[Rfam]
RNA: T-box leader
Organism: Hoskinsella hominis
RNA sequence: AAACAAACGUUGAUAAGGAUAAGUAAUAAAUACAUUCAGGCAUAGAGAGAUAACGGUUGGUGUAAGUUAUCGCUGAAGAUUUAUGAAAUCAACCUUGGAGUGAACAGGUGAAUAAAGUAAUCUGUUUCGGUAGCACCGUUAUCGCUUUGAGAUAUUUGAUUCUUUGAAUCAAAUAAAAAAGGGUGGCAACACGAGGUAUCGUCCCUUUA
Numbered sequence: 001a002a003a004c005a006a007a008c009g010u011u012g013a014u015a016a017g018g019a020u021a022a023g024u025a026a027u028a029a030a031u032a033c034a035u036u037c038a039g040g041c042a043u044a045g046a047g048a049g050a051u052a053a054c055g056g057u058u059g060g061u062g063u064a065a066g067u068u069a070u071c072g073c074u075g076a077a078g079a080u081u082u083a084u085g086a087a088a089u090c091a092a093c094c095u096u097g098g099a100g101u102g103a104a105c106a107g108g109u110g111a112a113u114a115a116a117g118u119a120a121u122c123u124g125u126u127u128c129g130g131u132a133g134c135a136c137c138g139u140u141a142u143c144g145c146u147u148u149g150a151g152a153u154a155u156u157u158g159a160u161u162c163u164u165u166g167a168a169u170c171a172a173a174u175a176a177a178a179a180a181g182g183g184u185g186g187c188a189a190c191a192c193g194a195g196g197u198a199u200c201g202u203c204c205c206u207u208u209a
Stems, first nucleotide, its partner, number of pairs: 007101002015096004026084006038074002049071006103126007128138003154174007180206004191202004